Overview
A member of the RNA family "TPP riboswitch aptamer (THI element)" from Thiomicrorhabdus sediminis, 107 nucleotides long. Vitamin B(1) in its active form thiamin pyrophosphate (TPP) is an essential coenzyme that is synthesised by coupling of pyrimidine and thiazole moieties in bacteria. The organism belongs to Thiomicrorhabdus, within Bacteria. The match comes from Rfam's covariance-model search (68 bits).
[Rfam]
RNA sequence: UUUGACAGCCAGGGGCGGCAAUUUGCCUGAGAUCUCAAUGUAAAAGAGAGCACCCUUCGAACCUGAUCCAGUUAAUACUGGCGUAGGGACGGCGUGAUACAAGUAGU
Numbered sequence: 001u002u003u004g005a006c007a008g009c010c011a012g013g014g015g016c017g018g019c020a021a022u023u024u025g026c027c028u029g030a031g032a033u034c035u036c037a038a039u040g041u042a043a044a045a046g047a048g049a050g051c052a053c054c055c056u057u058c059g060a061a062c063c064u065g066a067u068c069c070a071g072u073u074a075a076u077a078c079u080g081g082c083g084u085a086g087g088g089a090c091g092g093c094g095u096g097a098u099a100c101a102a103g104u105a106g107u
Stems, first nucleotide, its partner, number of pairs: 008093003011056004016050001017027004034048003062087004068081004